This 82-nucleotide sequence from Pan troglodytes belongs to the Rfam family "mir-1233 microRNA precursor family". Pairs were carried over by alignment from the consensus structure, which was predicted with RNAalifold. Rfam links the family to the GO terms RISC complex and miRNA-mediated post-transcriptional gene silencing. The source organism's lineage runs through Eukaryota, Euteleostomi, Sarcopterygii, Homininae and Pan.

[Rfam]
RNA sequence: GUGAGUGGGAGGCCAGGGCAUGGCAGGGGGAGCUGCAGGGCCGUCGGAGGGGCCCCAGCAUCUGAGCCCUGUCCUCCCGCAG
Numbered sequence: 001g002u003g004a005g006u007g008g009g010a011g012g013c014c015a016g017g018g019c020a021u022g023g024c025a026g027g028g029g030g031a032g033c034u035g036c037a038g039g040g041c042c043g044u045c046g047g048a049g050g051g052g053c054c055c056c057a058g059c060a061u062c063u064g065a066g067c068c069c070u071g072u073c074c075u076c077c078c079g080c081a082g
Stems, first nucleotide, its partner, number of pairs: 005080008014071006028063003032059004038055005
Rfam's curators put it in the seed alignment.